[Rfam]
This 62-nucleotide RNA from Pleurocapsa sp. PCC 7327 belongs to the Rfam family "Plastid-psbN 5UTR RNA". On this family, see Richter et al., Plant Commun 2023: "Retrograde signaling in plants: A critical review focusing on the GUN pathway and beyond". By type it is a cis-regulatory element. The family has 63 seed sequences and 2,345 matches in Rfam 15.1. The base pairs follow the family's consensus structure, which was predicted with LocARNA. It scores 52 bits against the family's covariance model.

RNA sequence: UGAAAACGCCCAUGAGCGGCGUAGUUCCCCAACCAGGAACAACUUUACCGUACUCGGAAUUU
Numbered sequence: 001u002g003a004a005a006a007c008g009c010c011c012a013u014g015a016g017c018g019g020c021g022u023a024g025u026u027c028c029c030c031a032a033c034c035a036g037g038a039a040c041a042a043c044u045u046u047a048c049c050g051u052a053c054u055c056g057g058a059a060u061u062u
Stems, first nucleotide, its partner, number of pairs: 018046002021043002024040005